[Rfam]
Rfam assigns this 91-nucleotide RNA from Chelonia mydas to the family "mir-7 microRNA precursor family".

RNA sequence: UGGCCCCGUCCCUUAUGGAAGACUAGUGAUUUUGUUGUUCUAUAGCUCAUCUCAUGACAACAAGUCACAGUCUGCCUUAUGGUGCAUGGCC
Numbered sequence: 001u002g003g004c005c006c007c008g009u010c011c012c013u014u015a016u017g018g019a020a021g022a023c024u025a026g027u028g029a030u031u032u033u034g035u036u037g038u039u040c041u042a043u044a045g046c047u048c049a050u051c052u053c054a055u056g057a058c059a060a061c062a063a064g065u066c067a068c069a070g071u072c073u074g075c076c077u078u079a080u081g082g083u084g085c086a087u088g089g090c091c
Stems, first nucleotide, its partner, number of pairs: 002090001004088001008085002011082002014079002017076002020073005026068007034061006
Background
Rfam's curators write: This family represents the microRNA (miRNA) precursor mir-7. Gene Ontology terms of the family: RISC complex and miRNA-mediated post-transcriptional gene silencing. A reference for the family is Lagos-Quintana et al. (2001), "Identification of novel genes coding for small expressed RNAs", Science. The base pairs follow the family's consensus structure, which was predicted with PFOLD.